Rfam assigns this 82-nucleotide RNA sequence from Ahniella affigens to the family "Glycine riboswitch aptamer". It scores 47 bits against the family's covariance model. This family represents the bacterial glycine riboswitch.
RNA sequence: GGGAACACAUCUGGAAAGUGAGCCGGCCUCCGGCUCCGCCGACGGGAUAACGCUCUCAGGCGCAAGCGACAGAUGGGGUUCG
Numbered sequence: 001g002g003g004a005a006c007a008c009a010u011c012u013g014g015a016a017a018g019u020g021a022g023c024c025g026g027c028c029u030c031c032g033g034c035u036c037c038g039c040c041g042a043c044g045g046g047a048u049a050a051c052g053c054u055c056u057c058a059g060g061c062g063c064a065a066g067c068g069a070c071a072g073a074u075g076g077g078g079u080u081c082g
Stems, first nucleotide, its partner, number of pairs: 006077001008075006020036004038061003041057002045055002